A member of the RNA family "Bacterial large subunit ribosomal RNA" from Dyadobacter helix, 600 nucleotides of a longer RNA. A search with the family's covariance model found it, with a score of 2700 bits. The base pairs follow the family's consensus structure, which is taken from published work. The source organism's lineage runs through Bacteria, Pseudomonadati, Bacteroidota, Cytophagales and Dyadobacter.

RNA sequence: UAGUAGCGGUGAAGAUGCCGCUUACCCGCCACGGGACGGAAAGACCCCGUGCACCUUUACUAUAGCUUUGCAUUGUUUUCGGGUCAGGGAUGUGUAGGAUAGGUGGGAGGCUGUGAGCCGGUGUCGCCAGGCAUCGGGGAGCCAACGUUGAAAUACCACCCUUCGCUGGCCUGGGAUCUAACUGCUCAAUGAGCAGGACCGUGCAUGGUGGGUAGUUUGACUGGGGUGGUCGCCUCCAAAAGUGUAACGGAGGCUUCCAAAGGUCUGCUCAACACGCUUGGUAACCGUGUGUGGAGUGCAAUAGUACAAGCAGGCUUGACUGCGAGAUCGACGGAUCGAGCAGGUGGGAAACCAGGGUAUAGUGAUCCGGUGGUUCUGUAUGGAAGGGCCAUCGCUCAAAGGAUAAAAGGUACGCCGGGGAUAACAGGCUGAUCUCCCCCAAGAGCUCACAUCGACGGGGAGGUUUGGCACCUCGAUGUCGGCUCGUCACAUCCUGGGGCUGGAGAAGGUCCCAAGGGUUCGGCUGUUCGCCGAUUAAAGUGGCACGCGAGCUGGGUUCAGAACGUCGUGAGACAGUUCGGUCCCUAUCUGUGGUGGGCG
Numbered sequence: 001u002a003g004u005a006g007c008g009g010u011g012a013a014g015a016u017g018c019c020g021c022u023u024a025c026c027c028g029c030c031a032c033g034g035g036a037c038g039g040a041a042a043g044a045c046c047c048c049g050u051g052c053a054c055c056u057u058u059a060c061u062a063u064a065g066c067u068u069u070g071c072a073u074u075g076u077u078u079u080c081g082g083g084u085c086a087g088g089g090a091u092g093u094g095u096a097g098g099a100u101a102g103g104u105g106g107g108a109g110g111c112u113g114u115g116a117g118c119c120g121g122u123g124u125c126g127c128c129a130g131g132c133a134u135c136g137g138g139g140a141g142c143c144a145a146c147g148u149u150g151a152a153a154u155a156c157c158a159c160c161c162u163u164c165g166c167u168g169g170c171c172u173g174g175g176a177u178c179u180a181a182c183u184g185c186u187c188a189a190u191g192a193g194c195a196g197g198a199c200c201g202u203g204c205a206u207g208g209u210g211g212g213u214a215g216u217u218u219g220a221c222u223g224g225g226g227u228g229g230u231c232g233c234c235u236c237c238a239a240a241a242g243u244g245u246a247a248c249g250g251a252g253g254c255u256u257c258c259a260a261a262g263g264u265c266u267g268c269u270c271a272a273c274a275c276g277c278u279u280g281g282u283a284a285c286c287g288u289g290u291g292u293g294g295a296g297u298g299c300a301a302u303a304g305u306a307c308a309a310g311c312a313g314g315c316u317u318g319a320c321u322g323c324g325a326g327a328u329c330g331a332c333g334g335a336u337c338g339a340g341c342a343g344g345u346g347g348g349a350a351a352c353c354a355g356g357g358u359a360u361a362g363u364g365a366u367c368c369g370g371u372g373g374u375u376c377u378g379u380a381u382g383g384a385a386g387g388g389c390c391a392u393c394g395c396u397c398a399a400a401g402g403a404u405a406a407a408a409g410g411u412a413c414g415c416c417g418g419g420g421a422u423a424a425c426a427g428g429c430u431g432a433u434c435u436c437c438c439c440c441a442a443g444a445g446c447u448c449a450c451a452u453c454g455a456c457g458g459g460g461a462g463g464u465u466u467g468g469c470a471c472c473u474c475g476a477u478g479u480c481g482g483c484u485c486g487u488c489a490c491a492u493c494c495u496g497g498g499g500c501u502g503g504a505g506a507a508g509g510u511c512c513c514a515a516g517g518g519u520u521c522g523g524c525u526g527u528u529c530g531c532c533g534a535u536u537a538a539a540g541u542g543g544c545a546c547g548c549g550a551g552c553u554g555g556g557u558u559c560a561g562a563a564c565g566u567c568g569u570g571a572g573a574c575a576g577u578u579c580g581g582u583c584c585c586u587a588u589c590u591g592u593g594g595u596g597g598g599c600g
Stems, first nucleotide, its partner, number of pairs: 005022005025598008034590003038585002046419004051415002053411005059216004066208002069205004075178001077176011089164002092161001102160005109143003118137008182196005219231004232254006255400001257357002263315006269295002272290005296305002320343004326337003345354003368394007376387002428469003432466001433463007443453002480555001481553004485547001486544005493518002496513006520534005561579004565574003